[Rfam]
RNA sequence: AUUUCAUUGCCAUGUGGAAGACUAGUGAUUUUGUUGUUUUUAUUAUCUUAGAAGACAACAAAUCACAGUCUACCUCACGGCGCUGAGAU
Numbered sequence: 001a002u003u004u005c006a007u008u009g010c011c012a013u014g015u016g017g018a019a020g021a022c023u024a025g026u027g028a029u030u031u032u033g034u035u036g037u038u039u040u041u042a043u044u045a046u047c048u049u050a051g052a053a054g055a056c057a058a059c060a061a062a063u064c065a066c067a068g069u070c071u072a073c074c075u076c077a078c079g080g081c082g083c084u085g086a087g088a089u
Stems, first nucleotide, its partner, number of pairs: 002088005008082001010080002013077002016074002019071005025066007033059006

This 89-nucleotide RNA from Sinocyclocheilus anshuiensis belongs to the Rfam family "mir-7 microRNA precursor family". Rfam describes the family as follows. This family represents the microRNA (miRNA) precursor mir-7. The literature on the family includes a 2001 paper in Science by Lagos-Quintana et al., "Identification of novel genes coding for small expressed RNAs". The family has 132 seed sequences and 2,589 matches in Rfam 15.1. It scores 77 bits against the family's covariance model. Pairs were carried over by alignment from the consensus structure, which was predicted with PFOLD.